[Rfam]
RNA sequence: CGAUAUGAGGACUGAGUAAAUGCAAUUUCGUGCUUGCACGAAAAAUUGCAUUUAUGAAAGGACUUAACGGACAUGAGGAAAAAAGACAUACGAACGAAGUGAGUAUGUCGAUUUCCGAAUGGACGUAGCAUGGCGAGAGCGAAGCGGAGCCAUGCGUGAUAUCG
Numbered sequence: 001c002g003a004u005a006u007g008a009g010g011a012c013u014g015a016g017u018a019a020a021u022g023c024a025a026u027u028u029c030g031u032g033c034u035u036g037c038a039c040g041a042a043a044a045a046u047u048g049c050a051u052u053u054a055u056g057a058a059a060g061g062a063c064u065u066a067a068c069g070g071a072c073a074u075g076a077g078g079a080a081a082a083a084a085g086a087c088a089u090a091c092g093a094a095c096g097a098a099g100u101g102a103g104u105a106u107g108u109c110g111a112u113u114u115c116c117g118a119a120u121g122g123a124c125g126u127a128g129c130a131u132g133g134c135g136a137g138a139g140c141g142a143a144g145c146g147g148a149g150c151c152a153u154g155c156g157u158g159a160u161a162u163c164g
Base pairs, nucleotide, nucleotide: 001164002163003162004161005160006159010063012061013060016055017054018053019052020051021050022049023048024047025046026045027044028043029040030039031038032037067126068125069124072121073120074119077116078115079114080113085109086108087107088106089105090104091103128155129154130153131152132151133150134149139145140144